The record is an 85-nucleotide RNA from Sulfuriferula sp. AH1, which matches "c-di-GMP-I riboswitch aptamer" in Rfam.
From the family's description: GEMM was predicted in a large-scale screen for bacterial structured RNA regulatory elements.
Rfam 15.1 lists 5,092 matches to the family in 1,772 species.
The base pairs follow the family's consensus structure, which is taken from published work.
A search with the family's covariance model found it, with a score of 76 bits.
RNA sequence: AUUUGAAACUGGCAAACCCAUCGAAAGGUGGCGACGCAAAAUUUCCGGUCUAAAGUGGCGACACCAUGACAGCGGGAUUGCCAAA
Numbered sequence: 001a002u003u004u005g006a007a008a009c010u011g012g013c014a015a016a017c018c019c020a021u022c023g024a025a026a027g028g029u030g031g032c033g034a035c036g037c038a039a040a041a042u043u044u045c046c047g048g049u050c051u052a053a054a055g056u057g058g059c060g061a062c063a064c065c066a067u068g069a070c071a072g073c074g075g076g077a078u079u080g081c082c083a084a085a
Stems, first nucleotide, its partner, number of pairs: 012037002018031005040079004045075003048070003055064003